[Rfam]
RNA: Glycine riboswitch aptamer
RNA sequence: AGACCCCGUGCGGGAGAGUCCUUGUCGUUCGCGACCAGGGCGCCGAAGGAGCAAAUCCUCCCCGGAAUCUCUCAGGCACAUGUACCGCAUGGACGAG
Dot-bracket structure: .....((((((((......((((.............)))).(((((..(((....(.......)....))))).))).......)))))))).....